[Rfam]
The record is a 90-nucleotide RNA sequence from Streptomyces chumphonensis, which matches "che1 RNA" in Rfam.
RNA sequence: UGGACAGGGGGGUCUUCGCCGACGGCGGAGCCUGUCCCGCGGCCCGUGCGCCAGCACGGGCAGUGGUUGUCGCUCGGGGGGUGACCGCCG
Dot-bracket structure: .(((((((.....(((((((...))))))))))))))....((((((((....)))))))).............................